[Rfam]
RNA sequence: GAAUAUGACACGGGGAGCUGGGCGACGGCCGGCUGAGAGGGGAUCCCGAUUCGAUCCCGACCCUUUGACCUGAUCUGGAUAAUGCCAGCGUAGGAAUCGCGAAGCAGCAGUUU
Numbered sequence: 001g002a003a004u005a006u007g008a009c010a011c012g013g014g015g016a017g018c019u020g021g022g023c024g025a026c027g028g029c030c031g032g033c034u035g036a037g038a039g040g041g042g043a044u045c046c047c048g049a050u051u052c053g054a055u056c057c058c059g060a061c062c063c064u065u066u067g068a069c070c071u072g073a074u075c076u077g078g079a080u081a082a083u084g085c086c087a088g089c090g091u092a093g094g095a096a097u098c099g100c101g102a103a104g105c106a107g108c109a110g111u112u113u
Base pairs, nucleotide, nucleotide: 006101007100010097012063013062014061017033018032019031020030021029040058041057042056043055044054069094070093071092072091075088076087077086078085
RNA: TPP riboswitch aptamer (THI element)
Organism: Paenibacillus montanisoli